[Rfam]
RNA sequence: GCGAAGCUUGAUUUUGAUUGUUGCUCAGAAAGCCGUCAUGUUAAAUGGCUUUCUAGUAAUAAUCAAAACCAAGGAGCGU
Numbered sequence: 001g002c003g004a005a006g007c008u009u010g011a012u013u014u015u016g017a018u019u020g021u022u023g024c025u026c027a028g029a030a031a032g033c034c035g036u037c038a039u040g041u042u043a044a045a046u047g048g049c050u051u052u053c054u055a056g057u058a059a060u061a062a063u064c065a066a067a068a069c070c071a072a073g074g075a076g077c078g079u
Base pairs, nucleotide, nucleotide: 001079002078003077007073012068013067014066015065016064017063018062020060021059022058023057024056025055028053029052030051031050032049033048034047
mir-315 microRNA precursor family: a 79-nucleotide RNA sequence from Thrips palmi. The literature on the family includes a 2003 paper in Dev Cell by Aravin et al., "The small RNA profile during Drosophila melanogaster development". Its family is annotated with RISC complex and miRNA-mediated post-transcriptional gene silencing in the Gene Ontology. It scores 64 bits against the family's covariance model.